mir-7583 microRNA precursor family: a 58-nucleotide RNA sequence from Caenorhabditis briggsae. The base pairs follow the family's consensus structure, which was predicted with RNAalifold. Taxonomically the source falls in Caenorhabditis (Eukaryota, Rhabditida, Rhabditina, Rhabditidae). Its family is annotated with miRNA-mediated post-transcriptional gene silencing and RISC complex in the Gene Ontology.
RNA sequence: AGUUGCAAAUAUCGUGGUGGCAUUACAAGUAGUCUUGCCAUCCGAAAUUUGUGAUUGA
Numbered sequence: 001a002g003u004u005g006c007a008a009a010u011a012u013c014g015u016g017g018u019g020g021c022a023u024u025a026c027a028a029g030u031a032g033u034c035u036u037g038c039c040a041u042c043c044g045a046a047a048u049u050u051g052u053g054a055u056u057g058a
Base pairs, nucleotide, nucleotide: 001056002055003054004053005052006051007050008049009048010047012045013044014043016042017041018040019039020038021037022036025033026032